[Rfam]
RNA sequence: UGAGAUUUAAGCCCUGUGAUGAUGACUCUAAUGAGUUUGAGUGGUGCCGCUUGGUUUUUUCUUGCUGAGACUCAUUAUCUUUG
Numbered sequence: 001u002g003a004g005a006u007u008u009a010a011g012c013c014c015u016g017u018g019a020u021g022a023u024g025a026c027u028c029u030a031a032u033g034a035g036u037u038u039g040a041g042u043g044g045u046g047c048c049g050c051u052u053g054g055u056u057u058u059u060u061c062u063u064g065c066u067g068a069g070a071c072u073c074a075u076u077a078u079c080u081u082u083g
Stems, first nucleotide, its partner, number of pairs: 018079007025036004039052005053072006
The record is an 83-nucleotide RNA from Arabidopsis thaliana, which matches "Small Cajal body specific RNA ncR27" in Rfam. NCBI's taxonomy places the organism under Eukaryota, Viridiplantae, malvids, Brassicales, Arabidopsis. The family's RNA type in Rfam is small Cajal body RNA.